[Rfam]
RNA sequence: UCCGCGCUCAUUGGGGAGUAGCCGCCCCGCUGCAUGUCACGCGCAAUGCCGGCUCGCGAAGGCUUCUGUGAAGUCUGUCGUAUCGAGGUCGGUCGGGUCGUUCCGGUUGCGCGGCGCACAUCGCUUGCGGGGGCGUCUGUCAACAAACUUGGCCUGUACGGCCAUGGCAGACGCAGCCUUUGGCCUGGCGAGACCGAUGAUCCAUGGCGUGCCGCGAAGGGCC
Numbered sequence: 001u002c003c004g005c006g007c008u009c010a011u012u013g014g015g016g017a018g019u020a021g022c023c024g025c026c027c028c029g030c031u032g033c034a035u036g037u038c039a040c041g042c043g044c045a046a047u048g049c050c051g052g053c054u055c056g057c058g059a060a061g062g063c064u065u066c067u068g069u070g071a072a073g074u075c076u077g078u079c080g081u082a083u084c085g086a087g088g089u090c091g092g093u094c095g096g097g098u099c100g101u102u103c104c105g106g107u108u109g110c111g112c113g114g115c116g117c118a119c120a121u122c123g124c125u126u127g128c129g130g131g132g133g134c135g136u137c138u139g140u141c142a143a144c145a146a147a148c149u150u151g152g153c154c155u156g157u158a159c160g161g162c163c164a165u166g167g168c169a170g171a172c173g174c175a176g177c178c179u180u181u182g183g184c185c186u187g188g189c190g191a192g193a194c195c196g197a198u199g200a201u202c203c204a205u206g207g208c209g210u211g212c213c214g215c216g217a218a219g220g221g222c223c
Base pairs, nucleotide, nucleotide: 026131027130028129029128030127133174134173135172136171137170138169139168140167141166142165150164151163152162153161154160

This 223-nucleotide RNA from Paraburkholderia solisilvae belongs to the Rfam family "Manganese Mn2+ riboswitch aptamer (yybP-ykoY)". Gene Ontology term of the family: manganese ion binding. Lineage of the source: Bacteria > Pseudomonadota > Betaproteobacteria > Burkholderiales > Paraburkholderia.